[Rfam]
RNA sequence: GUGUCCUCGCGUGACUGGCGACAUCGGAUGGAGCACCAUCGGGAAGCGCGGGAUAACUGCCGUUCGCCUGGGCAAUUGGG
Numbered sequence: 001g002u003g004u005c006c007u008c009g010c011g012u013g014a015c016u017g018g019c020g021a022c023a024u025c026g027g028a029u030g031g032a033g034c035a036c037c038a039u040c041g042g043g044a045a046g047c048g049c050g051g052g053a054u055a056a057c058u059g060c061c062g063u064u065c066g067c068c069u070g071g072g073c074a075a076u077u078g079g080g
Base pairs, nucleotide, nucleotide: 006052007051008050009049010048011047012046015043016042017068018067019066020065021064028039029038030037031036058074059073060072061071

Background
This 80-nucleotide sequence from Bradyrhizobium sp. STM 3843 belongs to the Rfam family "ZMP/ZTP riboswitch aptamer (pfl RNA motif)". Pairs were carried over by alignment from the consensus structure, which is taken from published work. The organism belongs to Bradyrhizobium, within Bacteria. It scores 59 bits against the family's covariance model.